[Rfam]
RNA sequence: CCAGACGGCCGGACGGCCGCCGGUCCCGCGGCGGCAGCGGCCGCGGCGGGGCUGGAGGAAAGUCCGGGCUCCACGGGAACGCGGUGCCGGCCAACGGCCGGCGGGGGAGUUCCGGCGGGCCGCGAGGCCCCUCGGCGCGACCCCAGGGAAAGUGCCACAGAGAACAGACCGCCCGCGCGCCGGUCGGCCCGCGGGCAAGGGUGAAACGGUGCGGCAAGAGCGCACCGCGUCCCCGGCGACGGGGAUGGCACGGCAAACCCCACCGGGAGCAAGGCCGAAUAGGGGCGGCCGGCGUGGUCCUCGCCUCGGCGGGGGCGGACGCGAGGGUGUUCCCGCCCUGCCGCCCGGGUUGGCCGCGAGAAGCCGGCGGUGACGCCGGCUCCAGAGGAAUGGCCGUCCCCAGCCUUGCGGCUGGGACAGAACCCGGCUUACAGGCCGUUUGGCGCC
Numbered sequence: 001c002c003a004g005a006c007g008g009c010c011g012g013a014c015g016g017c018c019g020c021c022g023g024u025c026c027c028g029c030g031g032c033g034g035c036a037g038c039g040g041c042c043g044c045g046g047c048g049g050g051g052c053u054g055g056a057g058g059a060a061a062g063u064c065c066g067g068g069c070u071c072c073a074c075g076g077g078a079a080c081g082c083g084g085u086g087c088c089g090g091c092c093a094a095c096g097g098c099c100g101g102c103g104g105g106g107g108a109g110u111u112c113c114g115g116c117g118g119g120c121c122g123c124g125a126g127g128c129c130c131c132u133c134g135g136c137g138c139g140a141c142c143c144c145a146g147g148g149a150a151a152g153u154g155c156c157a158c159a160g161a162g163a164a165c166a167g168a169c170c171g172c173c174c175g176c177g178c179g180c181c182g183g184u185c186g187g188c189c190c191g192c193g194g195g196c197a198a199g200g201g202u203g204a205a206a207c208g209g210u211g212c213g214g215c216a217a218g219a220g221c222g223c224a225c226c227g228c229g230u231c232c233c234c235g236g237c238g239a240c241g242g243g244g245a246u247g248g249c250a251c252g253g254c255a256a257a258c259c260c261c262a263c264c265g266g267g268a269g270c271a272a273g274g275c276c277g278a279a280u281a282g283g284g285g286c287g288g289c290c291g292g293c294g295u296g297g298u299c300c301u302c303g304c305c306u307c308g309g310c311g312g313g314g315g316c317g318g319a320c321g322c323g324a325g326g327g328u329g330u331u332c333c334c335g336c337c338c339u340g341c342c343g344c345c346c347g348g349g350u351u352g353g354c355c356g357c358g359a360g361a362a363g364c365c366g367g368c369g370g371u372g373a374c375g376c377c378g379g380c381u382c383c384a385g386a387g388g389a390a391u392g393g394c395c396g397u398c399c400c401c402a403g404c405c406u407u408g409c410g411g412c413u414g415g416g417a418c419a420g421a422a423c424c425c426g427g428c429u430u431a432c433a434g435g436c437c438g439u440u441u442g443g444c445g446c447c
Base pairs, nucleotide, nucleotide: 001443002442003441004440005439006438007437008436009435010434011432012398013397014396015395016394017393018392020055021054022053023052024051025050026049027048028047060430061429062428064427065426066425067424068423069269070268071267072266077333079331082265083264084263085262086261087101088100089099090098091097102146103144104143105142106141147260148259152258153257154254155253156252169200170199171196172195173194174193175192176191177190179188180187181186208226209225210224211223212222213221227249228247229246230245231244232243233242234241235240273355274354275353276352283346284345285344286343287342288341324339325338326337327336328335362381363380364379365378366377367376368375369374
The family of this 447-nucleotide RNA sequence from Caldovatus sediminis is "Bacterial RNase P class A". The organism belongs to Caldovatus, within Bacteria. Ribonuclease P (RNase P) is a ubiquitous endoribonuclease, found in archaea, bacteria and eukarya as well as chloroplasts and mitochondria.